[Rfam]
RNA sequence: GCGUGGGUCGGCCCGCUGCACUGGAUCCAGUGGGCUGGGGGACACCGCCACCUCAUUCCCCGCGGGUGGCGGUCCGGUCCGGGGGGUGAGUCCCACCUCCCGGACUGUC
Numbered sequence: 001g002c003g004u005g006g007g008u009c010g011g012c013c014c015g016c017u018g019c020a021c022u023g024g025a026u027c028c029a030g031u032g033g034g035c036u037g038g039g040g041g042a043c044a045c046c047g048c049c050a051c052c053u054c055a056u057u058c059c060c061c062g063c064g065g066g067u068g069g070c071g072g073u074c075c076g077g078u079c080c081g082g083g084g085g086g087u088g089a090g091u092c093c094c095a096c097c098u099c100c101c102g103g104a105c106u107g108u109c
Base pairs, nucleotide, nucleotide: 001108002107006075007074009037010036011035012034013033014032015031016030017029018028038043045072046071047070048069049068050067051066052065053064076106077105078104079103080102081101082100083099084098085097086096087095088094

This 109-nucleotide sequence from Streptomyces sp. Ru73 belongs to the Rfam family "Streptomyces RNA 4115". Lineage of the source: Bacteria > Actinomycetes > Kitasatosporales > Streptomycetaceae > Streptomyces. Rfam's curators write: Identified by deep sequencing of transcriptome at the end of exponential growth phase. Rfam classes the family as a small RNA. The match comes from Rfam's covariance-model search (112 bits). The pairing is the family consensus, mapped onto this sequence.